[Rfam]
Nucleotides: 199
Stems, first nucleotide, its partner, number of pairs: 001058008011049002015044006021037005067132002072130004081124001083122002086119001088117001090115001093112003097109004134194008150180001152178001154176006
Number, partner (000 for none) and nucleotide at each position: 001058u002057c003056c004055a005054g006053c007052a008051g009000c010000a011049g012048u013000c014000a015044g016043c017042c018041g019040u020039c021037u022036g023035g024034c025033a026000g027000c028000c029000c030000c031000g032000u033025u034024g035023c036022c037021g038000u039020g040019a041018u042017g043016g044015u045000g046000u047000u048012a049011c050000a051008c052007u053006g054005c055004u056003g057002g058001g059000a060000g061000a062000g063000c064000a065000c066000u067132g068131c069000c070000g071000u072130g073129c074128c075127u076000u077000c078000u079000u080000u081124c082000u083122c084121u085000g086119g087000u088117g089000g090115c091000c092000c093112g094111u095110g096000u097109c098108g099107c100106u101000g102000u103000u104000c105000u106100g107099g108098u109097g110095c111094g112093c113000g114000u115090g116000g117088c118000u119086c120000u121084g122083g123000u124081g125000c126000a127075g128074g129073g130072c131068g132067c133000a134194c135193u136192g137191c138190u139189u140188c141187c142000u143000g144000g145000a146000g147000a148000g149000u150180g151000u152178g153000c154176u155175a156174a157173g158172c159171a160000u161000u162000c163000a164000c165000g166000u167000u168000g169000g170000c171159u172158g173157c174156u175155u176154g177000g178152c179000u180150c181000u182000a183000g184000u185000c186000u187141g188140g189139g190138a191137g192136c193135a194134g195000a196000c197000a198000g199000u
Small nucleolar RNA SNORA74: a 199-nucleotide sequence from Cavia porcellus. On this family, see Ganot et al., Genes Dev 1997: "The family of box ACA small nucleolar RNAs is defined by an evolutionarily conserved secondary structure and ubiquitous sequence elements essential for RNA accumulation". Its Rfam clan is "SNORA74 clan". The match comes from Rfam's covariance-model search (111 bits). From the family's description: U19 belongs to the H/ACA class of snoRNAs. snoRNAs bind a number of proteins (including dyskerin, Gar1p and Nop10p in the case of the H/ACA class) to form snoRNP complexes.